Notes
The family of this 567-nucleotide part of an RNA from Salpingoeca rosetta is "Eukaryotic small subunit ribosomal RNA". Clan: SSU clan.
RNA sequence: UGUCUCAAAGAUUAAGCCAUGCAUGUCUAAGUAUGAAUAGUAUUCUUGAUACUGUGAAACUGCGAAUGGCUCAUUAAAUCAGUUAUAGUUUAUUUGAUAGUUUGCAACUCGUUUUUCGGAGCGGUGUUGUGCUAGACGGAUAGCCGUGGUAAUUCUAGAGCUAAUACGUGCGACAAGGCCCGAGAGAGAGGUGUGUGUAUGCACAUUUUUCCUUUCGAGGGCUGCAUUUGUUAGGUAUAAAGCCAGCAGGAACAUGACUGGUGAAUCAGAAUAACUUUGCUGACCGUCACACUUUUGUGUGUGAUGGUGUCUCAUUCGAAUUUCUGCCCUAUCAACUUUCGAUGGUAAGGUAUUGGCUUACCAUGGUGACAACGGGUGACGGGGAACAUUUGGUUCGAUUCCGGAGAGGGAGCCUGAGAGACGGCUACCACUUCCAAGGAAGGCAGCAGGCGCGCAAAUUACCCAAUCCUGACACAGGGAGGUAGUGACAAUAAAUACCAAUGCACGGUGUUUUUAUGCACUGUGCAAUUGGAAUGAGAACAAUGUAAAGACCUUAUCAAGGAACAA
Numbered sequence: 001u002g003u004c005u006c007a008a009a010g011a012u013u014a015a016g017c018c019a020u021g022c023a024u025g026u027c028u029a030a031g032u033a034u035g036a037a038u039a040g041u042a043u044u045c046u047u048g049a050u051a052c053u054g055u056g057a058a059a060c061u062g063c064g065a066a067u068g069g070c071u072c073a074u075u076a077a078a079u080c081a082g083u084u085a086u087a088g089u090u091u092a093u094u095u096g097a098u099a100g101u102u103u104g105c106a107a108c109u110c111g112u113u114u115u116u117c118g119g120a121g122c123g124g125u126g127u128u129g130u131g132c133u134a135g136a137c138g139g140a141u142a143g144c145c146g147u148g149g150u151a152a153u154u155c156u157a158g159a160g161c162u163a164a165u166a167c168g169u170g171c172g173a174c175a176a177g178g179c180c181c182g183a184g185a186g187a188g189a190g191g192u193g194u195g196u197g198u199a200u201g202c203a204c205a206u207u208u209u210u211c212c213u214u215u216c217g218a219g220g221g222c223u224g225c226a227u228u229u230g231u232u233a234g235g236u237a238u239a240a241a242g243c244c245a246g247c248a249g250g251a252a253c254a255u256g257a258c259u260g261g262u263g264a265a266u267c268a269g270a271a272u273a274a275c276u277u278u279g280c281u282g283a284c285c286g287u288c289a290c291a292c293u294u295u296u297g298u299g300u301g302u303g304a305u306g307g308u309g310u311c312u313c314a315u316u317c318g319a320a321u322u323u324c325u326g327c328c329c330u331a332u333c334a335a336c337u338u339u340c341g342a343u344g345g346u347a348a349g350g351u352a353u354u355g356g357c358u359u360a361c362c363a364u365g366g367u368g369a370c371a372a373c374g375g376g377u378g379a380c381g382g383g384g385a386a387c388a389u390u391u392g393g394u395u396c397g398a399u400u401c402c403g404g405a406g407a408g409g410g411a412g413c414c415u416g417a418g419a420g421a422c423g424g425c426u427a428c429c430a431c432u433u434c435c436a437a438g439g440a441a442g443g444c445a446g447c448a449g450g451c452g453c454g455c456a457a458a459u460u461a462c463c464c465a466a467u468c469c470u471g472a473c474a475c476a477g478g479g480a481g482g483u484a485g486u487g488a489c490a491a492u493a494a495a496u497a498c499c500a501a502u503g504c505a506c507g508g509u510g511u512u513u514u515u516a517u518g519c520a521c522u523g524u525g526c527a528a529u530u531g532g533a534a535u536g537a538g539a540a541c542a543a544u545g546u547a548a549a550g551a552c553c554u555u556a557u558c559a560a561g562g563a564a565c566a567a
Stems, first nucleotide, its partner, number of pairs: 003493001005491001009486001010453001016451003020448003025063002030061003037055004070406003080326003085321002089319002095314003136169003143161002147157003177223005184216005228274005242262004284307008328376003335367003342364008380403004384396004408429002411426003431442004459484001461483003467479005499531003502527010538558002540555001542554001
It is one of the family's seed sequences. NCBI's taxonomy places the organism under Eukaryota, Opisthokonta, Choanoflagellata, Salpingoecidae, Salpingoeca.